[Rfam]
Source information:
The record is a 93-nucleotide RNA sequence from Streptomyces shenzhenensis, which matches "Streptomyces RNA 3202" in Rfam. On this family, see Vockenhuber et al., RNA Biol 2011: "Deep sequencing-based identification of small non-coding RNAs in Streptomyces coelicolor". Pairs were carried over by alignment from the consensus structure. Identified by deep sequencing of transcriptome at the end of exponential growth phase.
RNA sequence: CCACGUCCCGACGCACUCCCCCCUGCGCCGGGACCUUCCCCGAGCCGGGCUUCGGCGCCUAUCCCCCCCCGGGCGCCGGAGCCCGGCUUCUUC
Numbered sequence: 001c002c003a004c005g006u007c008c009c010g011a012c013g014c015a016c017u018c019c020c021c022c023c024u025g026c027g028c029c030g031g032g033a034c035c036u037u038c039c040c041c042g043a044g045c046c047g048g049g050c051u052u053c054g055g056c057g058c059c060u061a062u063c064c065c066c067c068c069c070c071g072g073g074c075g076c077c078g079g080a081g082c083c084c085g086g087c088u089u090c091u092u093c
Stems, first nucleotide, its partner, number of pairs: 005034006012027003042089010053078008